The family of this 41-nucleotide RNA from Paraliobacillus quinghaiensis is "Ribosomal protein L19 leader". Rfam classes the family as a cis-regulatory leader. The literature on the family includes a 1994 paper in Prog Nucleic Acid Res Mol Biol by Zengel and Lindahl, "Diverse mechanisms for regulating ribosomal protein synthesis in Escherichia coli". From the family's description: This family is a putative r-protein leader autoregulatory structure found in B. subtilis and other low-GC Gram-positive bacteria. It is located in the 5' untranslated regions of mRNAs encoding ribosomal protein L19 (rplS).
[Rfam]
RNA sequence: ACGAUGUUCCGCUGUUAGCUUGUUUUUAUUAAGAGCAUUGG
Numbered sequence: 001a002c003g004a005u006g007u008u009c010c011g012c013u014g015u016u017a018g019c020u021u022g023u024u025u026u027u028a029u030u031a032a033g034a035g036c037a038u039u040g041g
Base pairs, nucleotide, nucleotide: 003039004038005037006036007035008034009033013031014030016028017027018026